This 70-nucleotide RNA sequence from Anabarilius grahami belongs to the Rfam family "Small nucleolar RNA SNORD58". The family has 33 seed sequences and 2,484 matches in Rfam 15.1. Clan: SNORD58 clan. A reference for the family is Galardi et al. (2002), "Purified box C/D snoRNPs are able to reproduce site-specific 2'-O-methylation of target RNA in vitro", Mol Cell Biol. Gene Ontology terms of the family: nucleolus and RNA processing. snoRNA U58 is found in introns 1, 3 and 6 of the ribosomal protein RPL17 gene in humans.
Nucleotides: 070
Base pairs, nucleotide, nucleotide: 001069002068003067004066
Number, partner (000 for none) and nucleotide at each position: 001069g002068u003067a004066c005000a006000g007000u008000g009000a010000u011000g012000a013000c014000a015000a016000c017000u018000u019000a020000g021000g022000a023000c024000a025000c026000c027000u028000u029000u030000g031000a032000a033000g034000g035000u036000u037000a038000u039000g040000a041000c042000c043000u044000a045000u046000g047000a048000a049000a050000c051000c052000a053000c054000u055000a056000u057000g058000u059000a060000u061000a062000c063000u064000g065000a066004g067003u068002a069001c070000a